Rfam assigns this 73-nucleotide sequence from Marvinbryantia formatexigens to the family "tRNA". Transfer RNA (tRNA) molecules are approximately 80 nucleotides in length. By type it is a transfer RNA.

RNA sequence: AUAGAAGUGGCGCAGCUGGCAGCGCACAUGGCAGCUAACCAUGAUGUCGCGGGUUCAAAUCCUGCCUUCAAAA
Numbered sequence: 001a002u003a004g005a006a007g008u009g010g011c012g013c014a015g016c017u018g019g020c021a022g023c024g025c026a027c028a029u030g031g032c033a034g035c036u037a038a039c040c041a042u043g044a045u046g047u048c049g050c051g052g053g054u055u056c057a058a059a060u061c062c063u064g065c066c067u068u069c070a071a072a073a
Stems, first nucleotide, its partner, number of pairs: 002071001004069004010025004027043005049065005
The match comes from Rfam's covariance-model search (47 bits).